[Rfam]
RNA sequence: CCUGUUGUUCCAUCAGCAGUAUCCUAGGCAGAUCGGCGAUGAGGUAACGAACCGUCGAGAGCCUGCCGACAAUGUACCUGUGGCAAAGUCACCGCCAAAACCGUGAGGGGACGGCGGGUUCUGCCAGCGUCAGGCGGACA
Dot-bracket structure: .((((((......)))))).......(((((.((((((.(..(....)..).))))))....)))))............(((((...)))))((((....((....))....))))...((((((.......))))))..

A member of the RNA family "Group II catalytic intron D1-D4-7" from Marinithermofilum abyssi, 140 nucleotides long. The family has 244 seed sequences and 1,296 matches in Rfam 15.1. Taxonomically the source falls in Marinithermofilum (Bacteria, Bacillota, Bacilli, Thermoactinomycetaceae). Rfam describes the family as follows. Group II introns are found in rRNA, tRNA and mRNA of organelles in fungi, plants and protists, and also in mRNA in bacteria. Gene Ontology term of the family: Group II intron splicing. The base pairs follow the family's consensus structure.